[Rfam]
RNA sequence: GCCACAGGUGGCGCGGCGUCAAAAGCGCAGCGCCGUACGCGCAAUACCCAAACACAAACGGUAGACAAG
Numbered sequence: 001g002c003c004a005c006a007g008g009u010g011g012c013g014c015g016g017c018g019u020c021a022a023a024a025g026c027g028c029a030g031c032g033c034c035g036u037a038c039g040c041g042c043a044a045u046a047c048c049c050a051a052a053c054a055c056a057a058a059c060g061g062u063a064g065a066c067a068a069g
Base pairs, nucleotide, nucleotide: 009035010034011033012032013031014030016028017027018026019025
sucC RNA: a 69-nucleotide RNA sequence from Pseudomonas fluvialis. The organism belongs to Pseudomonas, within Bacteria. It scores 64 bits against the family's covariance model. It is annotated as a cis-regulatory element. The family's consensus secondary structure is taken from published work.